[Rfam]
Nucleotides: 097
Stems, first nucleotide, its partner, number of pairs: 001097003004093002010084009019074003025054002028052007038090005058071004
Number, partner (000 for none) and nucleotide at each position: 001097u002096g003095c004093a005092g006000a007000g008000u009000a010084g011083u012082u013081a014080u015079u016078g017077a018076g019074c020073g021072u022000u023000a024000a025054g026053u027000g028052u029051u030050g031049u032048a033047c034046c035000a036000u037000g038090g039089g040088a041087u042086g043000u044000c045000g046034g047033g048032u049031a050030c051029a052028a053026a054025c055000g056000a057000a058071c059070u060069a061068u062000c063000u064000u065000u066000u067000g068061a069060u070059a071058g072021g073020c074019g075000g076018u077017u078016u079015a080014a081013u082012a083011a084010c085000g086042c087041g088040u089039c090038c091000g092005c093004u094000a095003g096002c097001a